The record is an 84-nucleotide sequence from Magnetovibrio blakemorei, which matches "tRNA" in Rfam. A search with the family's covariance model found it, with a score of 54 bits. Taxonomically the source falls in Magnetovibrio (Bacteria, Pseudomonadota, Alphaproteobacteria, Magnetovibrionaceae).

Nucleotides: 084
Base pairs, nucleotide, nucleotide: 001083002082003081004080005079006078007077010026011025012024028044029043030042031041032040060076061075062074063073064072
Number, partner (000 for none) and nucleotide at each position: 001083g002082c003081c004080c005079c006078u007077g008000u009000g010026g011025c012024g013000g014000a015000a016000c017000u018000g019000g020000u021000a022000g023000a024012c025011g026010c027000g028044c029043g030042g031041g032040a033000u034000u035000c036000a037000a038000a039000a040032u041031c042030c043029c044028g045000u046000u047000c048000u049000c050000g051000c052000a053000a054000g055000g056000g057000a058000g059000u060076g061075c062074c063073g064072g065000u066000u067000c068000g069000a070000u071000u072064c073063c074062g075061g076060c077007u078006g079005g080004g081003g082002g083001c084000a